[Rfam]
RNA sequence: CUUGACGGACCCCAGCCACAGGGGCCGGUCCGCGGGGCGGUUCCCGCCGUAGGCGGCGAGCAGCGCCUGGGCCUC
Number, nucleotide and partner (000 for none) at each position: 001c000002u000003u000004g000005a000006c000007g000008g000009a000010c000011c000012c000013c000014a000015g025016c024017c023018a000019c000020a000021g000022g000023g017024g016025c015026c000027g000028g000029u000030c000031c071032g000033c069034g000035g000036g000037g000038c065039g064040g000041u000042u000043c060044c000045c058046g000047c056048c055049g054050u000051a000052g000053g000054c049055g048056g047057c000058g045059a000060g043061c000062a000063g000064c039065g038066c000067c000068u000069g033070g000071g031072c000073c000074u000075c000